[Rfam]
RNA sequence: UCGCACGAGCCCCCGGGCAUCUCUGAAUGAAUAUAAGUUUUGACGAAGAAUGCCCCAAAGCUUGUGCUACAACGCAAGCGUCUGUGUUGCAGUUUAGCCUCUGUACCUCACUUUCCCUUGGCUAUUUCUGUGUCAGAUCCGACGGCAACAUAU
Numbered sequence: 001u002c003g004c005a006c007g008a009g010c011c012c013c014c015g016g017g018c019a020u021c022u023c024u025g026a027a028u029g030a031a032u033a034u035a036a037g038u039u040u041u042g043a044c045g046a047a048g049a050a051u052g053c054c055c056c057a058a059a060g061c062u063u064g065u066g067c068u069a070c071a072a073c074g075c076a077a078g079c080g081u082c083u084g085u086g087u088u089g090c091a092g093u094u095u096a097g098c099c100u101c102u103g104u105a106c107c108u109c110a111c112u113u114u115c116c117c118u119u120g121g122c123u124a125u126u127u128c129u130g131u132g133u134c135a136g137a138u139c140c141g142a143c144g145g146c147a148a149c150a151u152a153u
Stems, first nucleotide, its partner, number of pairs: 003067008015055005020049002022046002079144004085135002088132005096123003